[Rfam]
RNA: terC RNA
Organism: Caenibius tardaugens
RNA sequence: UUUGCGGACCGGGCCCCUCUGGCGCGGCAUGCUGGCCCAAAUGGGCAGCCUGUCACGUGAUGUCGGACCGCAUCG
Numbered sequence: 001u002u003u004g005c006g007g008a009c010c011g012g013g014c015c016c017c018u019c020u021g022g023c024g025c026g027g028c029a030u031g032c033u034g035g036c037c038c039a040a041a042u043g044g045g046c047a048g049c050c051u052g053u054c055a056c057g058u059g060a061u062g063u064c065g066g067a068c069c070g071c072a073u074c075g
Stems, first nucleotide, its partner, number of pairs: 006069002009066004022058003026054004